RNA sequence: AGCCUAACCUUCUAUAGGUUUUCCUAUGAAGUAUGGCUAAAAACCCAUCCCUGACAUUAAACUCCUCGUCAGAGCACUCAGGGAUGGGUCUAUAGCCGAAAGGUUAUAGGAUAGUCGAAAGGCUAUC
Numbered sequence: 001a002g003c004c005u006a007a008c009c010u011u012c013u014a015u016a017g018g019u020u021u022u023c024c025u026a027u028g029a030a031g032u033a034u035g036g037c038u039a040a041a042a043a044c045c046c047a048u049c050c051c052u053g054a055c056a057u058u059a060a061a062c063u064c065c066u067c068g069u070c071a072g073a074g075c076a077c078u079c080a081g082g083g084a085u086g087g088g089u090c091u092a093u094a095g096c097c098g099a100a101a102g103g104u105u106a107u108a109g110g111a112u113a114g115u116c117g118a119a120a121g122g123c124u125a126u127c
Stems, first nucleotide, its partner, number of pairs: 001038004009031004014027005044088011063076001090109008110127006